[Rfam]
RNA: THF (Tetrahydrofolate) riboswitch aptamer
RNA sequence: GGCAGAGUAGGUGCUGCGCGUGAAGUGCCGGGGGAUGGGAAGUUGCCUCCGGACGAAAGGCCUUGUGGCCUGCGGUGCGGUACCGCGUCCGCUGUC
Number, nucleotide and partner (000 for none) at each position: 001g096002g095003c094004a093005g092006a000007g000008u000009a000010g084011g083012u082013g081014c080015u079016g078017c077018g076019c074020g073021u072022g000023a000024a000025g054026u053027g000028c052029c051030g050031g049032g048033g047034g046035a000036u000037g000038g090039g089040a088041a000042g086043u000044u000045g000046c034047c033048u032049c031050c030051g029052g028053a026054c025055g000056a000057a000058a071059g070060g069061c068062c000063u000064u000065g000066u000067g000068g061069c060070c059071u058072g021073c020074g019075g000076u018077g017078c016079g015080g014081u013082a012083c011084c010085g000086c042087g000088u040089c039090c038091g000092c005093u004094g003095u002096c001